[Rfam]
FMN riboswitch aptamer (RFN element): a 152-nucleotide sequence from Pseudoneobacillus rhizosphaerae. The match comes from Rfam's covariance-model search (115 bits).
RNA sequence: UAUUUCCUUCGGGGUCGGGUGAAAUUCCCAACCGGCGGUGAUGAAGCUCGUGCUUCUUAGUCCGUGACCCGUGAAUAAUAGCAAAUAUUAUUCACGGUGGAUCUGGUGGAAUUCCAGGGCCGACAGUAAAGUCUGGAUGGGAGAAGGAAUGA
Numbered sequence: 001u002a003u004u005u006c007c008u009u010c011g012g013g014g015u016c017g018g019g020u021g022a023a024a025u026u027c028c029c030a031a032c033c034g035g036c037g038g039u040g041a042u043g044a045a046g047c048u049c050g051u052g053c054u055u056c057u058u059a060g061u062c063c064g065u066g067a068c069c070c071g072u073g074a075a076u077a078a079u080a081g082c083a084a085a086u087a088u089u090a091u092u093c094a095c096g097g098u099g100g101a102u103c104u105g106g107u108g109g110a111a112u113u114c115c116a117g118g119g120c121c122g123a124c125a126g127u128a129a130a131g132u133c134u135g136g137a138u139g140g141g142a143g144a145a146g147g148a149a150u151g152a
Stems, first nucleotide, its partner, number of pairs: 004149007017029003031132002033122002035065004060120002069097006102118005124135003